[Rfam]
Shown here is a 179-nucleotide RNA sequence from Paenibacillus albiflavus, a member of the family "c-di-AMP riboswitch aptamer (ydaO/yuaA leader)".
About the family: This family represents a conserved RNA structure found upstream of the ydaO and yuaA genes in Bacillus subtilis and related genes in other bacteria.
A search with the family's covariance model found it, with a score of 95 bits.

RNA sequence: AGUUCUUUAUCGCUGAGUCUUCGGAAUCAUACUGAAGAACGGGGGAACCAAUCGGUGCUGCAUUAAUUGCCAUCAUGGGGUGAAUCUUGUACUUAAUUCUCACAAGAAUAAGUUCAAGUAGGGCGACUCUUACGCCCGAAUCCGACAGCUAACCUCGUAAGCGUACCAAGAGAGGCAAC
Numbered sequence: 001a002g003u004u005c006u007u008u009a010u011c012g013c014u015g016a017g018u019c020u021u022c023g024g025a026a027u028c029a030u031a032c033u034g035a036a037g038a039a040c041g042g043g044g045g046a047a048c049c050a051a052u053c054g055g056u057g058c059u060g061c062a063u064u065a066a067u068u069g070c071c072a073u074c075a076u077g078g079g080g081u082g083a084a085u086c087u088u089g090u091a092c093u094u095a096a097u098u099c100u101c102a103c104a105a106g107a108a109u110a111a112g113u114u115c116a117a118g119u120a121g122g123g124c125g126a127c128u129c130u131u132a133c134g135c136c137c138g139a140a141u142c143c144g145a146c147a148g149c150u151a152a153c154c155u156c157g158u159a160a161g162c163g164u165a166c167c168a169a170g171a172g173a174g175g176c177a178a179c
Stems, first nucleotide, its partner, number of pairs: 011163004018038007039158006049077002078143003086118004121137004